[Rfam]
RNA: Bacillaceae-1 RNA
RNA sequence: GUUUAAGGAUCAAAGGCUAAAUUCGCAACAUCCUGUUGGCAGACUCAAACGCGACGUCCUGUCGCUUCGUCUGCACUAGUACAUCCUAUACGUUGCAACGCCUUUGUGACCUGCGUCGUGCCGG
Numbered sequence: 001g002u003u004u005a006a007g008g009a010u011c012a013a014a015g016g017c018u019a020a021a022u023u024c025g026c027a028a029c030a031u032c033c034u035g036u037u038g039g040c041a042g043a044c045u046c047a048a049a050c051g052c053g054a055c056g057u058c059c060u061g062u063c064g065c066u067u068c069g070u071c072u073g074c075a076c077u078a079g080u081a082c083a084u085c086c087u088a089u090a091c092g093u094u095g096c097a098a099c100g101c102c103u104u105u106g107u108g109a110c111c112u113g114c115g116u117c118g119u120g121c122c123g124g
Base pairs, nucleotide, nucleotide: 011106012105013104014103015102016101017100025096026095027094028093029092110124111123113121114120